[Rfam]
RNA: MIR1520 microRNA precursor family
Organism: Glycine soja
RNA sequence: UUACAAAGGAAUAUUAACUACACGUGUCAUGUUCUAAUUAGACGUUGAUAACAAUAAUACAUUUUUAUCGUCGAUAAAGUCAACAUCCAAUCAAAACGUGACACGUGAGUUCAACUAAA
Numbered sequence: 001u002u003a004c005a006a007a008g009g010a011a012u013a014u015u016a017a018c019u020a021c022a023c024g025u026g027u028c029a030u031g032u033u034c035u036a037a038u039u040a041g042a043c044g045u046u047g048a049u050a051a052c053a054a055u056a057a058u059a060c061a062u063u064u065u066u067a068u069c070g071u072c073g074a075u076a077a078a079g080u081c082a083a084c085a086u087c088c089a090a091u092c093a094a095a096a097c098g099u100g101a102c103a104c105g106u107g108a109g110u111u112c113a114a115c116u117a118a119a
Base pairs, nucleotide, nucleotide: 021107022106024104025103028100029099030098032096033095035093037091038090039089